[Rfam]
RNA sequence: CAGAUGAUAUUUACGCAAAAUCAUACUGCGCCAGGCAGCUUAUUAUCAAUAAUUCCAUAUGGUAUCUCCCCAGUAUUCUGCUUGGAUCUUCUUUGACUAAGACAGAAAG
Numbered sequence: 001c002a003g004a005u006g007a008u009a010u011u012u013a014c015g016c017a018a019a020a021u022c023a024u025a026c027u028g029c030g031c032c033a034g035g036c037a038g039c040u041u042a043u044u045a046u047c048a049a050u051a052a053u054u055c056c057a058u059a060u061g062g063u064a065u066c067u068c069c070c071c072a073g074u075a076u077u078c079u080g081c082u083u084g085g086a087u088c089u090u091c092u093u094u095g096a097c098u099a100a101g102a103c104a105g106a107a108a109g
Base pairs, nucleotide, nucleotide: 001028002027003026004024005023006022007021008020010019011018078105079104080103081101082100083099084098085097087096088095
pan motif: a 109-nucleotide sequence from Pectinatus brassicae. A search with the family's covariance model found it, with a score of 39 bits. Rfam classes the family as a cis-regulatory element.